[Rfam]
Nucleotides: 304
Stems, first nucleotide, its partner, number of pairs: 003064002006062007016052002021049002026044005065257009076245004083238003087234003092230002097112004118221006124210005129203004135197006145190003150184004159178007258296010270284003
Number, partner (000 for none) and nucleotide at each position: 001000a002000c003064g004063g005000a006062a007061g008060c009059u010058u011057g012056g013000c014000g015000a016052g017051g018000c019000c020000a021049a022048g023000a024000u025000c026044u027043a028042g029041c030040c031000g032000g033000a034000a035000g036000a037000g038000a039000a040030g041029g042028c043027u044026a045000a046000a047000u048022c049021u050000c051017c052016u053000g054000a055000a056012c057011c058010a059009g060008g061007c062006u063004c064003c065257u066256a067255g068254c069253a070252c071251g072250g073249a074000u075000c076245c077244c078243g079242g080000c081000a082000c083238c084237c085236a086000c087234g088233c089232g090000g091000a092230g093229c094000a095000c096000a097112u098111g099110c100109c101000g102000c103000g104000g105000a106000a107000u108000a109100g110099g111098c112097a113000a114000a115000a116000g117000u118221g119220u120219u121218g122217c123216g124210g125209g126208c127207c128206u129203g130202c131201g132200u133000g134000a135197u136196u137195g138194c139193g140192a141000g142000a143000a144000u145190g146189c147188g148000g149000a150184c151183g152182g153181c154000c155000a156000c157000g158000a159178c160177g161176g162175c163174u164173c165172c166000u167000u168000g169000g170000g171000u172165g173164g174163a175162g176161u177160c178159g179000c180000a181153g182152c183151c184150g185000a186000a187000g188147c189146g190145c191000a192140u193139c194138g195137c196136a197135a198000g199000g200132a201131c202130g203129c204000c205000g206128a207127g208126g209125c210124c211000a212000c213000c214000c215000a216123c217122g218121c219120a220119a221118c222000c223000c224000a225000c226000a227000u228000u229093g230092c231000a232089c233088g234087c235000u236085u237084g238083g239000u240000a241000a242079c243078c244077g245076g246000g247000c248000a249073u250072c251071c252070g253069u254068g255067c256066u257065a258296g259295c260294g261293g262292g263291c264290g265289g266288c267287g268000a269000g270284c271283c272282g273000a274000a275000c276000a277000u278000c279000g280000u281000u282272c283271g284270g285000a286000g287267c288266g289265c290264c291263g292262c293261c294260c295259g296258c297000u298000u299000c300000g301000c302000g303000u304000u
Shown here is a 304-nucleotide RNA from Mycolicibacterium wolinskyi, a member of the family "Mycobacterium smegmatis small RNA 1".
The family's consensus secondary structure was predicted with CMfinder.
Gene Ontology term of the family: RNA polymerase binding.
The organism belongs to Mycobacterium (subgen. Mycolicibacterium), within Bacteria.
For this family Rfam cites "Ms1, a novel sRNA interacting with the RNA polymerase core in mycobacteria" (Hnilicova et al., Nucleic Acids Res, 2014).